[Rfam]
RNA sequence: UUGACAGCCUCGGAGACUGAAGCCCUCUAUUUAUCUACAGAACAGGUACAGCCUGGGCAGCAGCAGUGCUAGCUUCCACAAUUUCCCCACCACCGUGCCUCAGCCCUGACCUGGAAGAUCCACCUCUAGAGGUGAGAGGGGAACUUGGCCUCCACGUCCCUUGAGAGCUUGGCCUCA
Number, nucleotide and partner (000 for none) at each position: 001u000002u164003g000004a162005c000006a000007g158008c000009c000010u000011c000012g153013g152014a151015g150016a000017c148018u147019g146020a145021a000022g000023c000024c141025c140026u139027c138028u137029a000030u136031u135032u134033a133034u132035c131036u000037a000038c108039a107040g106041a000042a000043c000044a000045g000046g000047u000048a100049c000050a000051g098052c097053c000054u095055g094056g093057g000058c000059a000060g000061c000062a000063g085064c000065a083066g082067u000068g000069c000070u000071a000072g000073c000074u000075u000076c000077c000078a000079c000080a000081a000082u066083u065084u000085c063086c000087c000088c000089a000090c000091c000092a000093c056094c055095g054096u000097g052098c051099c000100u048101c000102a000103g000104c000105c000106c040107u039108g038109a000110c000111c129112u128113g127114g126115a125116a000117g123118a000119u000120c000121c000122a000123c117124c000125u115126c114127u113128a112129g111130a000131g035132g034133u033134g032135a031136g030137a028138g027139g026140g025141g024142a000143a000144c000145u020146u019147g018148g017149c000150c015151u014152c013153c012154a000155c000156g000157u000158c007159c000160c000161u000162u004163g000164a002165g000166a000167g000168c000169u000170u000171g000172g000173c000174c000175u000176c000177a000
Background: This 177-nucleotide RNA sequence from Chloroceryle aenea belongs to the Rfam family "TUC338". Pairs were carried over by alignment from the consensus structure, which was predicted with WAR. A reference for the family is Braconi et al. (2011), "Expression and functional role of a transcribed noncoding RNA with an ultraconserved element in hepatocellular carcinoma", Proc Natl Acad Sci U S A. NCBI's taxonomy places the organism under Eukaryota, Sarcopterygii, Archosauria, Saurischia, Chloroceryle.